[Rfam]
RNA sequence: GUCAGGAUGGCCGAGUGGUCUAAGGCGCCAGACUCAAGUUCUGGUCUUCGAGAGAGGGCGUGGGUUCAAAUCCCACUUCUGACA
Numbered sequence: 001g002u003c004a005g006g007a008u009g010g011c012c013g014a015g016u017g018g019u020c021u022a023a024g025g026c027g028c029c030a031g032a033c034u035c036a037a038g039u040u041c042u043g044g045u046c047u048u049c050g051a052g053a054g055a056g057g058g059c060g061u062g063g064g065u066u067c068a069a070a071u072c073c074c075a076c077u078u079c080u081g082a083c084a
Stems, first nucleotide, its partner, number of pairs: 001083007010026003028044005060076005
This 84-nucleotide RNA sequence from Phaseolus vulgaris belongs to the Rfam family "tRNA". Pairs were carried over by alignment from the consensus structure, which is taken from published work. NCBI's taxonomy places the organism under Eukaryota, Gunneridae, rosids, Fabales, Phaseolus. Rfam classes the family as a transfer RNA.